The family of this 47-nucleotide sequence from Aliidongia dinghuensis is "chrB-b RNA". NCBI's taxonomy places the organism under Bacteria, Pseudomonadota, Rhodospirillales, Dongiaceae, Aliidongia. It is annotated as a cis-regulatory element. A search with the family's covariance model found it, with a score of 53 bits.

RNA sequence: UGGGGGAAUGCAGGCUCCCCUUUAGACGAUCGUCGUCCAAGCUCUGC
Numbered sequence: 001u002g003g004g005g006g007a008a009u010g011c012a013g014g015c016u017c018c019c020c021u022u023u024a025g026a027c028g029a030u031c032g033u034c035g036u037c038c039a040a041g042c043u044c045u046g047c
Base pairs, nucleotide, nucleotide: 002020003019004018005017006016010047011046012045013044014043025037026036027035028034029033